[Rfam]
RNA: SAM riboswitch aptamer (S box leader)
RNA sequence: UGACCAUCCCGAGCGGCUGAGAGAUCUGGAUCUGUGACGCCGCAGCAACCCUGGCCCCGGCGGGACCGCCGUCCGGAGCCAAAGGUGCUACUGCCAGAAGCGAUGGUGA
Numbered sequence: 001u002g003a004c005c006a007u008c009c010c011g012a013g014c015g016g017c018u019g020a021g022a023g024a025u026c027u028g029g030a031u032c033u034g035u036g037a038c039g040c041c042g043c044a045g046c047a048a049c050c051c052u053g054g055c056c057c058c059g060g061c062g063g064g065a066c067c068g069c070c071g072u073c074c075g076g077a078g079c080c081a082a083a084g085g086u087g088c089u090a091c092u093g094c095c096a097g098a099a100g101c102g103a104u105g106g107u108g109a
Base pairs, nucleotide, nucleotide: 001109003107004106005105006104007103008102013043014042015041016040017039021032022031026097027096028095029094044089045088046087047086049085050084052081053080054079055078093101